[Rfam]
A member of the RNA family "mir-7583 microRNA precursor family" from Caenorhabditis briggsae, 59 nucleotides long. The sequence is in the family's curated seed alignment. Rfam links the family to the GO terms RISC complex and miRNA-mediated post-transcriptional gene silencing. The family's consensus secondary structure was predicted with RNAalifold. The source organism's lineage runs through Eukaryota, Metazoa, Protostomia, Peloderinae and Caenorhabditis.
RNA sequence: AGUCACAAAUAUCGUGAUGGCAUUGAAAGGCAUCAUUGCCAUCCGACAUUUGUGGUUGA
Numbered sequence: 001a002g003u004c005a006c007a008a009a010u011a012u013c014g015u016g017a018u019g020g021c022a023u024u025g026a027a028a029g030g031c032a033u034c035a036u037u038g039c040c041a042u043c044c045g046a047c048a049u050u051u052g053u054g055g056u057u058g059a
Stems, first nucleotide, its partner, number of pairs: 001057010012046003016043007025033001